[Rfam]
RNA sequence: UGAAUUGAAUACGUUGUACCGUAGACAGUAGGUGCUGAAUAGCUUAAUAUCCUGCCGAGGUGUUUGAAACAAGUUAAACUUUGUUUAUUCGAGCCUCCAUGUCUAUAUGGGGGCUCUUUUAAUAGUGAA
Numbered sequence: 001u002g003a004a005u006u007g008a009a010u011a012c013g014u015u016g017u018a019c020c021g022u023a024g025a026c027a028g029u030a031g032g033u034g035c036u037g038a039a040u041a042g043c044u045u046a047a048u049a050u051c052c053u054g055c056c057g058a059g060g061u062g063u064u065u066g067a068a069a070c071a072a073g074u075u076a077a078a079c080u081u082u083g084u085u086u087a088u089u090c091g092a093g094c095c096u097c098c099a100u101g102u103c104u105a106u107a108u109g110g111g112g113g114c115u116c117u118u119u120u121a122a123u124a125g126u127g128a129a
Stems, first nucleotide, its partner, number of pairs: 028055005034043003093114009
Record summary
A member of the RNA family "Ribosomal protein L10 leader" from Ornithinibacillus hominis, 129 nucleotides long. A search with the family's covariance model found it, with a score of 80 bits. Rfam describes the family as follows. This family is a putative r-protein leader autoregulatory structure found in B. subtilis and other low-GC Gram-positive bacteria.